[Rfam]
RNA: Purine riboswitch aptamer
Organism: Paenibacillus catalpae
RNA sequence: ACUAAUAAAAUAAUAACUUUUCGUAUAAUCUCAAGAAUUGGCUUGAGAGUCUCUACUAGAUCACCGUAAAUGAUCAGGCUACGAAAAGAGUGGAAGAGUGC
Dot-bracket structure: .................((((((((...(((((((......)))))))........(.(((((.......))))).)..))))))))..............